[Rfam]
Background: The record is a 72-nucleotide sequence from Oesophagostomum dentatum, which matches "SmY spliceosomal RNA" in Rfam. NCBI's taxonomy places the organism under Eukaryota, Bilateria, Protostomia, Chromadorea, Oesophagostomum. It scores 47 bits against the family's covariance model. Rfam classes the family as a spliceosomal small nuclear RNA.
RNA sequence: AUCAUGAGCAAAUACUUUCUUGGGCCUUACUCAAGACCCUCGUAACAAUUUUUGGGAAGCCCUUAGGGGUUG
Numbered sequence: 001a002u003c004a005u006g007a008g009c010a011a012a013u014a015c016u017u018u019c020u021u022g023g024g025c026c027u028u029a030c031u032c033a034a035g036a037c038c039c040u041c042g043u044a045a046c047a048a049u050u051u052u053u054g055g056g057a058a059g060c061c062c063u064u065a066g067g068g069g070u071u072g
Stems, first nucleotide, its partner, number of pairs: 022039003026035003058071005